[Rfam]
RNA sequence: GAUCUAUGAUGAGAAAUAGCCAAAUCUGAGCACCAGUAGAUUACCUGAUUUACAUGGUGUAUGAUCUCCGUACAGUUCUGGGA
Numbered sequence: 001g002a003u004c005u006a007u008g009a010u011g012a013g014a015a016a017u018a019g020c021c022a023a024a025u026c027u028g029a030g031c032a033c034c035a036g037u038a039g040a041u042u043a044c045c046u047g048a049u050u051u052a053c054a055u056g057g058u059g060u061a062u063g064a065u066c067u068c069c070g071u072a073c074a075g076u077u078c079u080g081g082g083a
Stems, first nucleotide, its partner, number of pairs: 030060005038051004
Rfam assigns this 83-nucleotide RNA sequence from Pelodiscus sinensis to the family "Small nucleolar RNA U2-19". The literature on the family includes a 2004 paper in Curr Biol by Tycowski et al., "Guide RNAs with 5' Caps and Novel Box C/D snoRNA-like Domains for Modification of snRNAs in Metazoa". Taxonomically the source falls in Pelodiscus (Eukaryota, Sauropsida, Sauria, Trionychidae). By type it is a C/D-box small nucleolar RNA. The family's consensus secondary structure is taken from published work. Rfam links the family to the GO terms RNA processing and nucleolus.